Pseudomonas sRNA CrcZ: a 376-nucleotide RNA from Pseudomonas oryzae. A reference for the family is Livny et al. (2006), "Identification of 17 Pseudomonas aeruginosa sRNAs and prediction of sRNA-encoding genes in 10 diverse pathogens using the bioinformatic tool sRNAPredict2", Nucleic Acids Res. The family has 19 seed sequences and 127 matches in Rfam 15.1.
[Rfam]
RNA sequence: ACAACAACACAACAAAAACAAGACGUAUCGACUCCAUAACAACAAGAACAACAGGGUGGAGGCGCAGCAAACCGAUUCUUUUGGAGAGGAGUUGCCCGACUGGAUUCUCCCUCGACCGGACCGAGAACGAUAAAACUGCCUGCAGGCAGCGGCCAACACCGGUUGAACCCGCAAGGGUAGCGGCAAUAUCAGCAUCCAAAAGAAUAUGCUUGCUCUUCAGGUCCCGACCUGGGACCGGCACCGAACCACUGGUUCGGGCGGGCCGCCAAAAACAACAAAAGGCCCGACAGCACAACAAGAACAGAGCACGACCGAUUGGAAGGGGAGCCCAUGGGCUCCCCUUUGUGCUUUCUGGCGUUCGUCUGCCGCUCGGGCG
Numbered sequence: 001a002c003a004a005c006a007a008c009a010c011a012a013c014a015a016a017a018a019c020a021a022g023a024c025g026u027a028u029c030g031a032c033u034c035c036a037u038a039a040c041a042a043c044a045a046g047a048a049c050a051a052c053a054g055g056g057u058g059g060a061g062g063c064g065c066a067g068c069a070a071a072c073c074g075a076u077u078c079u080u081u082u083g084g085a086g087a088g089g090a091g092u093u094g095c096c097c098g099a100c101u102g103g104a105u106u107c108u109c110c111c112u113c114g115a116c117c118g119g120a121c122c123g124a125g126a127a128c129g130a131u132a133a134a135a136c137u138g139c140c141u142g143c144a145g146g147c148a149g150c151g152g153c154c155a156a157c158a159c160c161g162g163u164u165g166a167a168c169c170c171g172c173a174a175g176g177g178u179a180g181c182g183g184c185a186a187u188a189u190c191a192g193c194a195u196c197c198a199a200a201a202g203a204a205u206a207u208g209c210u211u212g213c214u215c216u217u218c219a220g221g222u223c224c225c226g227a228c229c230u231g232g233g234a235c236c237g238g239c240a241c242c243g244a245a246c247c248a249c250u251g252g253u254u255c256g257g258g259c260g261g262g263c264c265g266c267c268a269a270a271a272a273c274a275a276c277a278a279a280a281g282g283c284c285c286g287a288c289a290g291c292a293c294a295a296c297a298a299g300a301a302c303a304g305a306g307c308a309c310g311a312c313c314g315a316u317u318g319g320a321a322g323g324g325g326a327g328c329c330c331a332u333g334g335g336c337u338c339c340c341c342u343u344u345g346u347g348c349u350u351u352c353u354g355g356c357g358u359u360c361g362u363c364u365g366c367c368g369c370u371c372g373g374g375c376g
Stems, first nucleotide, its partner, number of pairs: 029064002032061004079201005093194003113165007136149005220236005256358001258356002260285004304348001306346002320343009
Its family is annotated with carbon catabolite repression of transcription in the Gene Ontology. The base pairs follow the family's consensus structure, which was predicted with WAR.